Rfam assigns this 200-nucleotide RNA sequence from Bos mutus to the family "Small nucleolar RNA SNORA74". Its family is annotated with RNA processing and nucleolus in the Gene Ontology. For this family Rfam cites "The family of box ACA small nucleolar RNAs is defined by an evolutionarily conserved secondary structure and ubiquitous sequence elements essential for RNA accumulation" (Ganot et al., Genes Dev, 1997). U19 belongs to the H/ACA class of snoRNAs. snoRNAs bind a number of proteins (including dyskerin, Gar1p and Nop10p in the case of the H/ACA class) to form snoRNP complexes. This class are thought to guide the sites of modification of uridines to pseudouridines by forming direct base pairing interactions with substrate RNAs. Targets may include ribosomal and spliceosomal RNAs but the exact functions of many snoRNAs, including U19, are not confirmed. Clan: SNORA74 clan. A search with the family's covariance model found it, with a score of 167 bits. The family's consensus secondary structure was predicted with PFOLD. Rfam classes the family as an H/ACA-box small nucleolar RNA.
RNA sequence: UCCAGCAGUUGUCAGCUAUCCAGGCUAGCGUGAUGCCUCAGAUGGUGUUACACUGUUGGAAGAGCAAGCACUGCCUUUAUCGAGGUCUGACUUCAGCACUGUUUUGGUGUUGUGGCUGAGUACCUCUGGGCAGUGUUUUGCACCUCUGAGAGUGGAGUAACUUCUCCUGUGGAGUUGGUCCCCCCGUUGGAGUUGGUCCU
Numbered sequence: 001u002c003c004a005g006c007a008g009u010u011g012u013c014a015g016c017u018a019u020c021c022a023g024g025c026u027a028g029c030g031u032g033a034u035g036c037c038u039c040a041g042a043u044g045g046u047g048u049u050a051c052a053c054u055g056u057u058g059g060a061a062g063a064g065c066a067a068g069c070a071c072u073g074c075c076u077u078u079a080u081c082g083a084g085g086u087c088u089g090a091c092u093u094c095a096g097c098a099c100u101g102u103u104u105u106g107g108u109g110u111u112g113u114g115g116c117u118g119a120g121u122a123c124c125u126c127u128g129g130g131c132a133g134u135g136u137u138u139u140g141c142a143c144c145u146c147u148g149a150g151a152g153u154g155g156a157g158u159a160a161c162u163u164c165u166c167c168u169g170u171g172g173a174g175u176u177g178g179u180c181c182c183c184c185c186g187u188u189g190g191a192g193u194u195g196g197u198c199c200u
Base pairs, nucleotide, nucleotide: 001060002059003058004057005056006055007054008053009052011051012050015046016045017044018043019042020041022038023037024036025035068136069135070134071133072132073131074130075129076128082126083125084124085123086122088118089117091115092114094112095111096110097109098108099107100106154199155198156197158195159194160193161192162191163190164189